[Rfam]
Nucleotides: 068
Stems, first nucleotide, its partner, number of pairs: 021067005034061004043050002
Number, partner (000 for none) and nucleotide at each position: 001000u002000g003000a004000c005000a006000a007000u008000u009000u010000u011000c012000u013000g014000u015000c016000u017000a018000u019000a020000u021067g022066u023065c024064u025063u026000g027000a028000c029000c030000a031000a032000a033000a034061u035060a036059c037058g038000u039000g040000c041000c042000a043050g044049c045000a046000g047000u048000c049044g050043c051000g052000g053000c054000a055000a056000u057000a058037c059036g060035u061034a062000g063025a064024a065023g066022a067021c068000u